6S / SsrS RNA: a 191-nucleotide RNA from Brevibacillus brevis. On this family, see Wassarman and Storz, Cell 2000: "6S RNA regulates E. coli RNA polymerase activity". The match comes from Rfam's covariance-model search (70 bits). The family's RNA type in Rfam is non-coding RNA gene. Rfam 15.1 lists 5,006 matches to the family in 4,638 species.
[Rfam]
RNA sequence: AAGAUCCUGCGAUGUACGAUAGGCCGUAAAUGUUUCUAACCUUAUACGUGUUUUUCGGGAGACGGAAACUGUGAUGGAUGUCAGGCCCACCUCCUUUUUGGAUGCAUGGGAAGGUUGAAGUACAGAAGGGUCGCCCACCUGUGUGAGCGCAGGUUAUAGAAACAUGAGGUCAACGGCAGAGCGGGGACUUG
Numbered sequence: 001a002a003g004a005u006c007c008u009g010c011g012a013u014g015u016a017c018g019a020u021a022g023g024c025c026g027u028a029a030a031u032g033u034u035u036c037u038a039a040c041c042u043u044a045u046a047c048g049u050g051u052u053u054u055u056c057g058g059g060a061g062a063c064g065g066a067a068a069c070u071g072u073g074a075u076g077g078a079u080g081u082c083a084g085g086c087c088c089a090c091c092u093c094c095u096u097u098u099u100g101g102a103u104g105c106a107u108g109g110g111a112a113g114g115u116u117g118a119a120g121u122a123c124a125g126a127a128g129g130g131u132c133g134c135c136c137a138c139c140u141g142u143g144u145g146a147g148c149g150c151a152g153g154u155u156a157u158a159g160a161a162a163c164a165u166g167a168g169g170u171c172a173a174c175g176g177c178a179g180a181g182c183g184g185g186g187a188c189u190u191g
Stems, first nucleotide, its partner, number of pairs: 002189002005186006013178003017175002033160003037156006057136003061132003069125004074121002081114002086110004